A member of the RNA family "c-di-GMP-I-GGC riboswitch aptamer" from Streptohalobacillus salinus, 85 nucleotides long. Its family is annotated with cyclic-di-GMP binding in the Gene Ontology. Taxonomically the source falls in Streptohalobacillus (Bacteria, Bacillota, Bacilli, Bacillaceae). Rfam 15.1 lists 1,298 matches to the family in 717 species.
RNA sequence: AAUAAAUGGGGCAAACUAUUCGAAAGAUUAGGACGCAAAGCCACGGGUCUAAAGCAUUAUCGUUAAGAUCGCCGGGCUACUUAUU
Numbered sequence: 001a002a003u004a005a006a007u008g009g010g011g012c013a014a015a016c017u018a019u020u021c022g023a024a025a026g027a028u029u030a031g032g033a034c035g036c037a038a039a040g041c042c043a044c045g046g047g048u049c050u051a052a053a054g055c056a057u058u059a060u061c062g063u064u065a066a067g068a069u070c071g072c073c074g075g076g077c078u079a080c081u082u083a084u085u
Base pairs, nucleotide, nucleotide: 001085004081011036012035016031017030018029020027021026034071039078040077041076042075044074045073046072047069048068049067